Shown here is a 128-nucleotide RNA from Desulfopila aestuarii, a member of the family "Molybdenum/Tungsten riboswitch aptamer (Moco RNA motif)". It scores 52 bits against the family's covariance model.

RNA sequence: ACGAAUACAUAACUCCGAGCCAAAAGACCUUCCGUUCCCAUGGGAAUCACGGUCUUCGGCCGAUAGGGUAAUGCGGGAAACUGUAUUGCCUUCCAAACCUUGAGAAGGAGUCUGCAUGAAUGCACGAG
Numbered sequence: 001a002c003g004a005a006u007a008c009a010u011a012a013c014u015c016c017g018a019g020c021c022a023a024a025a026g027a028c029c030u031u032c033c034g035u036u037c038c039c040a041u042g043g044g045a046a047u048c049a050c051g052g053u054c055u056u057c058g059g060c061c062g063a064u065a066g067g068g069u070a071a072u073g074c075g076g077g078a079a080a081c082u083g084u085a086u087u088g089c090c091u092u093c094c095a096a097a098c099c100u101u102g103a104g105a106a107g108g109a110g111u112c113u114g115c116a117u118g119a120a121u122g123c124a125c126g127a128g
Stems, first nucleotide, its partner, number of pairs: 004121001006119001012111005019060003024056006034047005066091011092103002